[Rfam]
RNA sequence: AUUUUUCUUCAGAAACGGGGAAGUCCCCUACCGGUAGUAAAGCCUGCGAGCAAAUUUUUUUGCUAAUCCGUUGAAAUUACGGAGCCGACAGAAAGUCUGGACGGGAGAAGAAAAGU
Numbered sequence: 001a002u003u004u005u006u007c008u009u010c011a012g013a014a015a016c017g018g019g020g021a022a023g024u025c026c027c028c029u030a031c032c033g034g035u036a037g038u039a040a041a042g043c044c045u046g047c048g049a050g051c052a053a054a055u056u057u058u059u060u061u062g063c064u065a066a067u068c069c070g071u072u073g074a075a076a077u078u079a080c081g082g083a084g085c086c087g088a089c090a091g092a093a094a095g096u097c098u099g100g101a102c103g104g105g106a107g108a109a110g111a112a113a114a115g116u
Base pairs, nucleotide, nucleotide: 003114004113005112006111007110008109009108010107017028018027019026030096031095032087033086034047035046036045037044042085043084050063051062052061067083068082069081070080071079089099090098091097
About this RNA:
FMN riboswitch aptamer (RFN element): a 116-nucleotide RNA from Tyzzerella sp. An114. Lineage of the source: Bacteria > Bacillati > Clostridia > Lachnospirales > Tyzzerella.